[Rfam]
RNA sequence: CAGCCUGAAGAGAGAGGCAGGGUCUGAUACACAGCCUCUGUGGCAGCUGUUGAUCAGCCCUUGCCUCUUUCUUUCUCUCAG
Numbered sequence: 001c002a003g004c005c006u007g008a009a010g011a012g013a014g015a016g017g018c019a020g021g022g023u024c025u026g027a028u029a030c031a032c033a034g035c036c037u038c039u040g041u042g043g044c045a046g047c048u049g050u051u052g053a054u055c056a057g058c059c060c061u062u063g064c065c066u067c068u069u070u071c072u073u074u075c076u077c078u079c080a081g
Stems, first nucleotide, its partner, number of pairs: 008073013022059001024057005032049004